[Rfam]
RNA sequence: CACAACCAGGAUUGUACGUCGCUUUGGAUAAAAGCGUCUGCUAAAUGAAUGUAA
Numbered sequence: 001c002a003c004a005a006c007c008a009g010g011a012u013u014g015u016a017c018g019u020c021g022c023u024u025u026g027g028a029u030a031a032a033a034g035c036g037u038c039u040g041c042u043a044a045a046u047g048a049a050u051g052u053a054a
Stems, first nucleotide, its partner, number of pairs: 013043001014041003020036006